[Rfam]
RNA sequence: CGCCCACCGCCUGGAACUUUCGUCUCAACCUUGGUUAUUGGAAAGGUGAGCAAAGUUUCAGGUGUGUCGGCGA
Number, nucleotide and partner (000 for none) at each position: 001c000002g071003c070004c069005c000006a067007c066008c064009g063010c062011c061012u060013g059014g058015a000016a056017c055018u054019u053020u052021c000022g000023u000024c050025u049026c048027a047028a000029c046030c045031u044032u000033g000034g000035u000036u000037a000038u000039u000040g000041g000042a000043a000044a031045g030046g029047u027048g026049a025050g024051c000052a020053a019054a018055g017056u016057u000058u014059c013060a012061g011062g010063u009064g008065u000066g007067u006068c000069g004070g003071c002072g000073a000
mir-87 microRNA precursor family: a 73-nucleotide RNA from Trichuris suis. Rfam 15.1 lists 420 matches to the family in 285 species. Rfam links the family to the GO terms miRNA-mediated post-transcriptional gene silencing and RISC complex.